Rfam assigns this 127-nucleotide RNA to the family "FMN riboswitch aptamer (RFN element)". The RFN element is a highly conserved domain that is found frequently in the 5'-untranslated regions of prokaryotic mRNAs that encode for flavin mononucleotide (FMN) biosynthesis and transport proteins. It scores 117 bits against the family's covariance model. The family's consensus secondary structure is taken from published work.
RNA sequence: AUUAAUUCUCAGGGCGAGGUGGAAUUCCUCACCGGUGGUAACAUAAUUAUAAGUCCACGAGCAUGAAUAUGCAGAUUUGGUGAAAUUCCAAAACCGACGGUUAAAGUCCGGAAGAGAGAGAAUAUAA
Numbered sequence: 001a002u003u004a005a006u007u008c009u010c011a012g013g014g015c016g017a018g019g020u021g022g023a024a025u026u027c028c029u030c031a032c033c034g035g036u037g038g039u040a041a042c043a044u045a046a047u048u049a050u051a052a053g054u055c056c057a058c059g060a061g062c063a064u065g066a067a068u069a070u071g072c073a074g075a076u077u078u079g080g081u082g083a084a085a086u087u088c089c090a091a092a093a094c095c096g097a098c099g100g101u102u103a104a105a106g107u108c109c110g111g112a113a114g115a116g117a118g119a120g121a122a123u124a125u126a127a
Stems, first nucleotide, its partner, number of pairs: 005123006017029003031107002033096002035058004053094002061072003076092005098110003